Record summary: This 76-nucleotide RNA sequence from Crocodylus porosus belongs to the Rfam family "Mammalian CPEB3 ribozyme". The source organism's lineage runs through Eukaryota, Opisthokonta, Chordata, Tetrapoda and Crocodylus. A reference for the family is Salehi-Ashtiani et al. (2006), "A genomewide search for ribozymes reveals an HDV-like sequence in the human CPEB3 gene", Science.
RNA sequence: AUCGCAAGCUCAAGGCCAAAGCAGAAAUGCUCAUGGCGUGGUCAUGCCAGAUUCCAAUGAAUCUGCAAAUUUUGCU
Numbered sequence: 001a002u003c004g005c006a007a008g009c010u011c012a013a014g015g016c017c018a019a020a021g022c023a024g025a026a027a028u029g030c031u032c033a034u035g036g037c038g039u040g041g042u043c044a045u046g047c048c049a050g051a052u053u054c055c056a057a058u059g060a061a062u063c064u065g066c067a068a069a070u071u072u073u074g075c076u
Stems, first nucleotide, its partner, number of pairs: 014043004020076007027039003048065007
Annotation:
The mammalian CPEB3 ribozyme is a self cleaving RNA located in the second intron of the CPEB3 gene which belongs to a family of genes regulating messenger RNA polyadenylation. This ribozyme is highly conserved and found only in mammals. The CPEB3 ribozyme is structurally and biochemically related to the human hepatitis delta virus (HDV) ribozyme and the HDV ribozyme is proposed to have arisen from the human transcriptome. There is currently only one other known self cleaving ribozyme in mammals, the CoTC motif.